[Rfam]
Shown here is a 56-nucleotide sequence from Monodelphis domestica, a member of the family "mir-7359 microRNA precursor family".
Gene Ontology terms of the family: miRNA-mediated post-transcriptional gene silencing and RISC complex.
Taxonomically the source falls in Monodelphis (Eukaryota, Eumetazoa, Chordata, Mammalia).
It is one of the family's seed sequences.
RNA sequence: UAGAAUGUGAAAGGCCAUUAGACAUUUUUGUUUCUCAUAGCCUUUCACAUUCUUAG
Number, nucleotide and partner (000 for none) at each position: 001u000002a053003g052004a051005a050006u049007g048008u047009g046010a045011a044012a043013g042014g041015c040016c000017a038018u037019u000020a033021g032022a031023c030024a029025u000026u000027u000028u000029u024030g023031u022032u021033u020034c000035u000036c000037a018038u017039a000040g015041c014042c013043u012044u011045u010046c009047a008048c007049a006050u005051u004052c003053u002054u000055a000056g000